[Rfam]
RNA sequence: GCACAUAGAACUUUCACGCAUUCAGUUGCAAGGGGGAAGGGAAUGGGUCCCUUCCGGUUGUAUGUGCGGAGGG
Numbered sequence: 001g002c003a004c005a006u007a008g009a010a011c012u013u014u015c016a017c018g019c020a021u022u023c024a025g026u027u028g029c030a031a032g033g034g035g036g037a038a039g040g041g042a043a044u045g046g047g048u049c050c051c052u053u054c055c056g057g058u059u060g061u062a063u064g065u066g067c068g069g070a071g072g073g
Stems, first nucleotide, its partner, number of pairs: 001067007009059004014033002018029003035055008
Rfam assigns this 73-nucleotide RNA from Atopobium minutum to the family "Corio-PBP RNA". Lineage of the source: Bacteria > Coriobacteriia > Atopobiaceae > Atopobium > Atopobium minutum. Pairs were carried over by alignment from the consensus structure, which is taken from published work.